This 203-nucleotide RNA sequence from Monodelphis domestica belongs to the Rfam family "Connexin-43 internal ribosome entry site (IRES)". NCBI's taxonomy places the organism under Eukaryota, Opisthokonta, Eumetazoa, Metatheria, Monodelphis. Rfam's curators write: This family represents the connexin-43 internal ribosome entry site (IRES) which allows cap independent translation during conditions such as heat shock and stress. The literature on the family includes a 1999 paper in FEBS Lett by Schiavi et al., "Connexin43 mRNA contains a functional internal ribosome entry site". The base pairs follow the family's consensus structure, which is taken from published work. Its family is annotated with ribosome binding in the Gene Ontology.
RNA sequence: GGCUUUUACGAGGUAUCAGCACUUUUCUUUCAUUAGAUGGAAGGAGGGAGGAAAGGACAAAACGGCAGCAGACUUUUAAACUUUAAAUAGACAGGUCUCAGUGCCUGAACUGGCUUUUCCAUUUUAUUUCAUCCUCCAAAGAGUUCAAUCAUUUGCUUGGGCUGCAUCACUCCUUAUAAGCAAAAGAGUAAGUUUUAAUGAAA
Number, nucleotide and partner (000 for none) at each position: 001g000002g020003c019004u018005u000006u000007u015008a014009c013010g000011a000012g000013g009014u008015a007016u000017c000018a004019g003020c002021a000022c000023u000024u000025u000026u000027c000028u000029u143030u142031c141032a000033u139034u138035a000036g136037a135038u000039g133040g130041a129042a128043g127044g000045a000046g000047g000048g123049a122050g000051g120052a000053a118054a117055g116056g000057a000058c000059a000060a000061a000062a000063c000064g000065g000066c000067a000068g000069c000070a098071g097072a096073c095074u094075u093076u000077u000078a000079a000080a000081c000082u000083u000084u000085a000086a000087a000088u000089a000090g000091a000092c000093a075094g074095g073096u072097c071098u070099c113100a000101g111102u000103g110104c000105c000106u000107g000108a000109a000110c103111u101112g000113g099114c000115u000116u055117u054118u053119c000120c051121a000122u049123u048124u000125u000126a000127u043128u042129u041130c040131a000132u000133c039134c000135u037136c036137c000138a034139a033140a000141g031142a030143g029144u000145u000146c000147a000148a000149u000150c000151a000152u000153u198154u197155g196156c000157u000158u000159g193160g000161g000162c000163u000164g000165c186166a000167u184168c000169a000170c180171u179172c000173c000174u000175u000176a000177u000178a000179a171180g170181c000182a000183a000184a167185a000186g165187a000188g000189u000190a000191a000192g000193u159194u000195u000196u155197a154198a153199u000200g000201a000202a000203a000